[Rfam]
Nucleotides: 118
Stems, first nucleotide, its partner, number of pairs: 025036003038075010055065004076118004081113002
Number, partner (000 for none) and nucleotide at each position: 001000u002000u003000u004000a005000a006000a007000g008000u009000u010000a011000a012000a013000a014000g015000g016000g017000a018000g019000u020000a021000a022000c023000u024000g025036c026035c027034u028000u029000u030000u031000a032000a033000a034027a035026g036025g037000u038075g039074a040073u041072a042071a043070a044069g045068u046067c047066a048000a049000c050000a051000u052000a053000c054000u055065g056064a057063c058062c059000u060000u061000a062058g063057g064056u065055c066047u067046g068045g069044c070043u071042u072041u073040a074039u075038c076118g077117u078116a079115a080000c081113u082112a083000a084000u085000u086000u087000u088000a089000g090000u091000u092000a093000a094000g095000u096000g097000a098000g099000a100000c101000u102000u103000u104000u105000a106000g107000c108000g109000c110000a111000a112082u113081a114000u115079u116078u117077g118076u
The family of this 118-nucleotide RNA from Clostridium chromiireducens is "Manganese Mn2+ riboswitch aptamer (yybP-ykoY)". This RNA was originally discovered in E. coli during a large scale screen and was named SraF. The family was later found to exist upstream of related families of protein genes in many bacteria, including the the yybP and ykoK genes in B. subtilis. The specific functions of these proteins are unknown, but this structured RNA element may be involved in their genetic regulation as a riboswitch. NCBI's taxonomy places the organism under Bacteria, Clostridia, Eubacteriales, Clostridiaceae, Clostridium.